Shown here is an 82-nucleotide RNA sequence from Machaerirhynchus nigripectus, a member of the family "Small nucleolar RNA SNORD111". The source organism's lineage runs through Eukaryota, Euteleostomi, Australaves, Passeriformes and Machaerirhynchus.
[Rfam]
RNA sequence: UGGCCUGAAAUGAUGUACUGAGUUCAUGUCUCUUUUCUGAGAUGUGUUGUGGAGACAACCAGAUGCAUUUCUGAUCAGGCUU
Numbered sequence: 001u002g003g004c005c006u007g008a009a010a011u012g013a014u015g016u017a018c019u020g021a022g023u024u025c026a027u028g029u030c031u032c033u034u035u036u037c038u039g040a041g042a043u044g045u046g047u048u049g050u051g052g053a054g055a056c057a058a059c060c061a062g063a064u065g066c067a068u069u070u071c072u073g074a075u076c077a078g079g080c081u082u
Base pairs, nucleotide, nucleotide: 002081003080004079005078